Source information: The family of this 301-nucleotide RNA sequence from Galbibacter marinus is "Bacterial RNase P class A". A search with the family's covariance model found it, with a score of 204 bits. Ribonuclease P (RNase P) is a ubiquitous endoribonuclease, found in archaea, bacteria and eukarya as well as chloroplasts and mitochondria.
RNA sequence: CGAGCAGGUCACCUUAUCGCCAUAUUAAUAUGGAGGAAAGUCCGGACACCAUAGCGUAGCAUAGCGGCUAACAGCCGUCGGCCGAAAGGUUAGGACAAGUGCAACAGAAAGCAAGUACAGGUAAUGCUGUAGUGAAAUCAGGUAAACUCUAUGCGGUGCAACGUCAUGUAAACUAAUGUUUGAGGGUUACGCGCCCGAUGUUAGAGGGUAGGCGGCUAGAGUCUUGUAGCAAUGCAAGACCGAGAUAAAUGAUAAGGACUCUUUUUUGGGGACAGAAUCCGGCUUAUGACCUGCUUAUUUU
Numbered sequence: 001c002g003a004g005c006a007g008g009u010c011a012c013c014u015u016a017u018c019g020c021c022a023u024a025u026u027a028a029u030a031u032g033g034a035g036g037a038a039a040g041u042c043c044g045g046a047c048a049c050c051a052u053a054g055c056g057u058a059g060c061a062u063a064g065c066g067g068c069u070a071a072c073a074g075c076c077g078u079c080g081g082c083c084g085a086a087a088g089g090u091u092a093g094g095a096c097a098a099g100u101g102c103a104a105c106a107g108a109a110a111g112c113a114a115g116u117a118c119a120g121g122u123a124a125u126g127c128u129g130u131a132g133u134g135a136a137a138u139c140a141g142g143u144a145a146a147c148u149c150u151a152u153g154c155g156g157u158g159c160a161a162c163g164u165c166a167u168g169u170a171a172a173c174u175a176a177u178g179u180u181u182g183a184g185g186g187u188u189a190c191g192c193g194c195c196c197g198a199u200g201u202u203a204g205a206g207g208g209u210a211g212g213c214g215g216c217u218a219g220a221g222u223c224u225u226g227u228a229g230c231a232a233u234g235c236a237a238g239a240c241c242g243a244g245a246u247a248a249a250u251g252a253u254a255a256g257g258a259c260u261c262u263u264u265u266u267u268g269g270g271g272a273c274a275g276a277a278u279c280c281g282g283c284u285u286a287u288g289a290c291c292u293g294c295u296u297a298u299u300u301u
Base pairs, nucleotide, nucleotide: 002296003295004294005293006292007291008290009289010288011287012257013256014255015254016253017252018251020033021032022031023030024029038285039284040283042282043281044280045279046278047158048157049156050155054192055191056190057189059154060153061152062151063150064078065077066076067075068074079093080091081090082089083088094149095148099147100146101143102142116131117130118129119128120127162214163213164212165211173204174203175202176201177200184196185195186194187193221240222239223238224237225236226235227234228233